[Rfam]
RNA sequence: UGGUGGCAGUGAUGAUUCUUGUGAUGCUGCAUUCCUGAUAUACAAACUGAAGGGCUGCAUAGUCACUACCCUCUUCUGAUGCCAUCU
Number, nucleotide and partner (000 for none) at each position: 001u000002g086003g085004u084005g083006g082007c081008a000009g000010u000011g000012a000013u000014g000015a000016u000017u000018c000019u000020u000021g000022u000023g000024a000025u000026g000027c000028u000029g000030c000031a000032u000033u000034c000035c000036u000037g000038a000039u000040a000041u000042a000043c000044a000045a000046a000047c000048u000049g000050a000051a000052g000053g000054g000055c000056u000057g000058c000059a000060u000061a000062g000063u000064c000065a000066c000067u000068a000069c000070c000071c000072u000073c000074u000075u000076c000077u000078g000079a000080u000081g007082c006083c005084a004085u003086c002087u000
This 87-nucleotide RNA from Anolis carolinensis belongs to the Rfam family "Small nucleolar RNA SNORD11B". Gene Ontology terms of the family: nucleolus and RNA processing. Pairs were carried over by alignment from the consensus structure, which was predicted with WAR. It is annotated as a C/D-box small nucleolar RNA. The source organism's lineage runs through Eukaryota, Bilateria, Deuterostomia, Gnathostomata and Anolis.